Shown here is a 52-nucleotide RNA from Lachnospiraceae bacterium A2, a member of the family "pemK RNA".

[Rfam]
RNA sequence: AUAAUGAUACUUCCGUAAAGCGGUCAUAGAGAUGAUGGUGCGAUUCCAAUGU
Numbered sequence: 001a002u003a004a005u006g007a008u009a010c011u012u013c014c015g016u017a018a019a020g021c022g023g024u025c026a027u028a029g030a031g032a033u034g035a036u037g038g039u040g041c042g043a044u045u046c047c048a049a050u051g052u
Stems, first nucleotide, its partner, number of pairs: 012049001013023004024035003036048003
Pairs were carried over by alignment from the consensus structure, which is taken from published work.